MIR2912 microRNA precursor family: a 157-nucleotide RNA sequence from Populus deltoides. The base pairs follow the family's consensus structure, which was predicted with RNAalifold. Lineage of the source: Eukaryota > Euphyllophyta > Gunneridae > rosids > Populus. Gene Ontology terms of the family: RISC complex and miRNA-mediated post-transcriptional gene silencing.

[Rfam]
RNA sequence: UCUAUAACUCGAAAUAUGAGCUGAACAUUGAACAGUUAAUGGUUUUGAGGCGGAUUCACGACUUCUCUUAUUGUUGCUACAAUUUGACCUUGAAAACGACCUUUUUGAAUCUUGGACUCUUCAUGAAAGUUUUAAGCCUAUGUCUUAGCUUUCCAUC
Numbered sequence: 001u002c003u004a005u006a007a008c009u010c011g012a013a014a015u016a017u018g019a020g021c022u023g024a025a026c027a028u029u030g031a032a033c034a035g036u037u038a039a040u041g042g043u044u045u046u047g048a049g050g051c052g053g054a055u056u057c058a059c060g061a062c063u064u065c066u067c068u069u070a071u072u073g074u075u076g077c078u079a080c081a082a083u084u085u086g087a088c089c090u091u092g093a094a095a096a097c098g099a100c101c102u103u104u105u106u107g108a109a110u111c112u113u114g115g116a117c118u119c120u121u122c123a124u125g126a127a128a129g130u131u132u133u134a135a136g137c138c139u140a141u142g143u144c145u146u147a148g149c150u151u152u153c154c155a156u157c
Stems, first nucleotide, its partner, number of pairs: 003155001006152002008148002011146002014143005020137001022134004027130003035124002041119002044116002047113004053106002058102001060100001063098001068093002073089001075087001